[Rfam]
RNA sequence: CUAUUUUUUUAGGUUUUGAUUUUCAUUACAUCUUGAUAGAAAAAUCAAAACCUAAAGAAAAUU
Numbered sequence: 001c002u003a004u005u006u007u008u009u010u011a012g013g014u015u016u017u018g019a020u021u022u023u024c025a026u027u028a029c030a031u032c033u034u035g036a037u038a039g040a041a042a043a044a045u046c047a048a049a050a051c052c053u054a055a056a057g058a059a060a061a062u063u
Base pairs, nucleotide, nucleotide: 004060005059006058007057008056009055010054011053012052013051014050015049016048017047018046019045020044021043022042023041
The record is a 63-nucleotide RNA sequence from Piaya cayana, which matches "mir-737 microRNA precursor family" in Rfam. Taxonomically the source falls in Piaya (Eukaryota, Gnathostomata, Saurischia, Coccyzidae). The family has 5 seed sequences and 233 matches in Rfam 15.1. It scores 66 bits against the family's covariance model. Its family is annotated with miRNA-mediated post-transcriptional gene silencing and RISC complex in the Gene Ontology.